[Rfam]
The record is a 96-nucleotide RNA sequence from Salvia splendens, which matches "Small nucleolar RNA Z43" in Rfam. It scores 94 bits against the family's covariance model. The literature on the family includes a 2003 paper in Nucleic Acids Res by Chen et al., "The high diversity of snoRNAs in plants: identification and comparative study of 120 snoRNA genes from Oryza sativa".

Nucleotides: 096
Stems, first nucleotide, its partner, number of pairs: 001096004043056001045051001
Number, partner (000 for none) and nucleotide at each position: 001096g002095g003094g004093c005000u006000a007000u008000g009000a010000u011000g012000a013000a014000u015000u016000g017000u018000g019000a020000u021000a022000g023000g024000u025000c026000u027000c028000g029000u030000u031000c032000g033000u034000c035000g036000u037000a038000a039000u040000g041000g042000c043056a044000u045051a046000u047000u048000g049000c050000u051045u052000g053000c054000c055000u056043u057000g058000c059000c060000g061000a062000c063000a064000a065000u066000a067000c068000u069000g070000a071000u072000a073000u074000a075000u076000c077000a078000c079000c080000a081000c082000c083000c084000a085000u086000a087000a088000a089000c090000u091000g092000a093004g094003u095002c096001c
Description
The family's consensus secondary structure was predicted with PFOLD.